[Rfam]
RNA sequence: UUGCAAUGAUGACUUGGAUCUGUCAAUCCCGUGAGUGCACUCAUUGAAGUCAACCUGUCCCUGAGCAA
Numbered sequence: 001u002u003g004c005a006a007u008g009a010u011g012a013c014u015u016g017g018a019u020c021u022g023u024c025a026a027u028c029c030c031g032u033g034a035g036u037g038c039a040c041u042c043a044u045u046g047a048a049g050u051c052a053a054c055c056u057g058u059c060c061c062u063g064a065g066c067a068a
Base pairs, nucleotide, nucleotide: 001068002067003066004065